[Rfam]
RNA sequence: GCCGAGCUCAGCAGCGCGAGCUUGUUACCCGAGCGGGGGCAUUAGGAUGGUGUUUGGACGUUGCCGUAUGGCUGCGGGCCUGGGCCGGUUGCGCUCUUGCUGGCCCGCCCGUUCCAAGUUGGUAGUUGGUCGGCGGGGCUUAAGCGAAAGCUGGGCCUCACGAUCCAUAAUGCGGCAGGCACAGCGUGAGGCUGGCUUCACAGAGCAGCGACAACUGCCCGCUUCCAACGGUGGAAGGAUAACGGGCCGCUGCGCUCUCGGCCCACAAACGGGCUUCGCAGCCUACUCCAACGGACCACCAUCUUU
Dot-bracket structure: (((((((((........))))))....(((....))))))...(((((((((......(((((..(((.(.(((((((((((((((((..(((.(.....(((((((.((.(((((.(((((.(((..(...(.(((((((.(((....)))))))))).)...)((...)).(((((......(((....(((......)))....)))....))))).))).)))))..)))))))....)))))))..))))..)))))))......)))).))))))).)))..)))))...))))))))).
Rfam assigns this 306-nucleotide RNA from Panicum hallii to the family "Plant signal recognition particle RNA".
It scores 224 bits against the family's covariance model.
Its family is annotated with SRP-dependent cotranslational protein targeting to membrane, signal sequence recognition and signal recognition particle, endoplasmic reticulum targeting in the Gene Ontology.